[Rfam]
Nucleotides: 080
Stems, first nucleotide, its partner, number of pairs: 029059005037050002040047001
Number, partner (000 for none) and nucleotide at each position: 001000u002000a003000u004000a005000c006000c007000u008000a009000c010000a011000g012000a013000a014000a015000a016000u017000a018000g019000c020000c021000a022000a023000a024000u025000u026000u027000g028000a029059g030058c031057a032056u033055c034000a035000g036000a037050a038049g039000c040047c041000c042000a043000c044000c045000c046000a047040g048000u049038c050037u051000a052000c053000c054000u055033g056032a057031u058030g059029c060000a061000u062000g063000a064000u065000c066000u067000u068000u069000g070000u071000a072000g073000u074000u075000c076000u077000g078000a079000g080000a
Background
Shown here is an 80-nucleotide RNA from Bos taurus, a member of the family "Small nucleolar RNA U2-19". Rfam classes the family as a C/D-box small nucleolar RNA. For this family Rfam cites "Guide RNAs with 5' Caps and Novel Box C/D snoRNA-like Domains for Modification of snRNAs in Metazoa" (Tycowski et al., Curr Biol, 2004). Its family is annotated with nucleolus and RNA processing in the Gene Ontology.